[Rfam]
RNA: msiK RNA
RNA sequence: GCGGACCACCCCUCUACUCGGAUCGUCCGGCAACGUUCCUGCCGGUGAAGGGAUCGACGA
Numbered sequence: 001g002c003g004g005a006c007c008a009c010c011c012c013u014c015u016a017c018u019c020g021g022a023u024c025g026u027c028c029g030g031c032a033a034c035g036u037u038c039c040u041g042c043c044g045g046u047g048a049a050g051g052g053a054u055c056g057a058c059g060a
Stems, first nucleotide, its partner, number of pairs: 010052004015047002027045006